[Rfam]
RNA sequence: CCGGCUUUCGGAGAUGGCAUGCCUCCCUUAACCGCCGCGUCCUUUUAGCGGCUGAUGAUGCCUACGAGUUC
Numbered sequence: 001c002c003g004g005c006u007u008u009c010g011g012a013g014a015u016g017g018c019a020u021g022c023c024u025c026c027c028u029u030a031a032c033c034g035c036c037g038c039g040u041c042c043u044u045u046u047a048g049c050g051g052c053u054g055a056u057g058a059u060g061c062c063u064a065c066g067a068g069u070u071c
Stems, first nucleotide, its partner, number of pairs: 010026004016062005034052004
Rfam assigns this 71-nucleotide RNA from Paraburkholderia caffeinitolerans to the family "Fluoride riboswitch aptamer (crcB RNA motif)". The family's consensus secondary structure is taken from published work. The match comes from Rfam's covariance-model search (54 bits). The organism belongs to Paraburkholderia, within Bacteria.